[Rfam]
RNA: Glycine riboswitch aptamer
RNA sequence: AAUGCCACUGCGGGAGAGGUCAGGUGAGAAGAUCCUGGCGCCGAAGGAGCAACCGCCCCGGAAACUCUCAGGCAAAAGGACCGCAGAGGCGUC
Number, nucleotide and partner (000 for none) at each position: 001a000002a000003u000004g000005c000006c088007a000008c086009u085010g084011c083012g082013g081014g000015a000016g000017a000018g000019g000020u038021c037022a036023g035024g000025u000026g000027a000028g000029a000030a000031g000032a000033u000034c000035c023036u022037g021038g020039c000040g073041c072042c071043g069044a068045a000046g000047g067048a066049g065050c000051a000052a000053c061054c060055g000056c000057c000058c000059c000060g054061g053062a000063a000064a000065c049066u048067c047068u044069c043070a000071g042072g041073c040074a000075a000076a000077a000078g000079g000080a000081c013082c012083g011084c010085a009086g008087a000088g006089g000090c000091g000092u000093c000